[Rfam]
RNA sequence: GAGAACUGCUAUUUUCGAAGUGUGGAAUGAUGGAGUAACGCCCUGAAACACACUCACUGAAGCUGCGGCAGGCAAAAGGAGUAAUGCAAAAACAAAUUUUGUCUGAAGCCCGCUAAAGUAGGCUGAAGUUUACCCUAACAGUACGGCUGAGGAAAGGGAGCUAUAAAGCUUCUGUGGAUGAUAGGUCUGGUGUCUAUAAA
Numbered sequence: 001g002a003g004a005a006c007u008g009c010u011a012u013u014u015u016c017g018a019a020g021u022g023u024g025g026a027a028u029g030a031u032g033g034a035g036u037a038a039c040g041c042c043c044u045g046a047a048a049c050a051c052a053c054u055c056a057c058u059g060a061a062g063c064u065g066c067g068g069c070a071g072g073c074a075a076a077a078g079g080a081g082u083a084a085u086g087c088a089a090a091a092a093c094a095a096a097u098u099u100u101g102u103c104u105g106a107a108g109c110c111c112g113c114u115a116a117a118g119u120a121g122g123c124u125g126a127a128g129u130u131u132a133c134c135c136u137a138a139c140a141g142u143a144c145g146g147c148u149g150a151g152g153a154a155a156g157g158g159a160g161c162u163a164u165a166a167a168g169c170u171u172c173u174g175u176g177g178a179u180g181a182u183a184g185g186u187c188u189g190g191u192g193u194c195u196a197u198a199a200a
Base pairs, nucleotide, nucleotide: 019054020053021052022051023050024049032044033043035041055192056191057190058189065113066112067111068110069105070104071103072102073101074100075099076098077097081093082092120188121187122186123185124184128179129178130177131176132175133174134152135151136150140148141147156173157172158171159170160169161168162167
RNA: Group II catalytic intron D1-D4-5
Organism: Niallia nealsonii